Small nucleolar RNA SNORD113/SNORD114 family: a 74-nucleotide RNA from Camelus ferus. For this family Rfam cites "Identification of tandemly-repeated C/D snoRNA genes at the imprinted human 14q32 domain reminiscent of those at the Prader-Willi/Angelman syndrome region" (Cavaille et al., Hum Mol Genet, 2002). The family is grouped with related families in Rfam's "SNORD74 clan". Lineage of the source: Eukaryota > Gnathostomata > Mammalia > Theria > Camelus. The family's consensus secondary structure is taken from published work. Rfam's curators write: The imprinted human domain at 14q32 contains two clusters of tandemly repeated small nucleolar RNAs named 14q(I) and 14q(II) snoRNAs. By type it is a C/D-box small nucleolar RNA.
RNA sequence: UAGACCAAUGGUGACAACUGGUGGCACUGAGUUGUGAACAAUGGACACUAUGUGUCUGAAACUGUGAGGUCUAA
Numbered sequence: 001u002a003g004a005c006c007a008a009u010g011g012u013g014a015c016a017a018c019u020g021g022u023g024g025c026a027c028u029g030a031g032u033u034g035u036g037a038a039c040a041a042u043g044g045a046c047a048c049u050a051u052g053u054g055u056c057u058g059a060a061a062c063u064g065u066g067a068g069g070u071c072u073a074a
Stems, first nucleotide, its partner, number of pairs: 002072005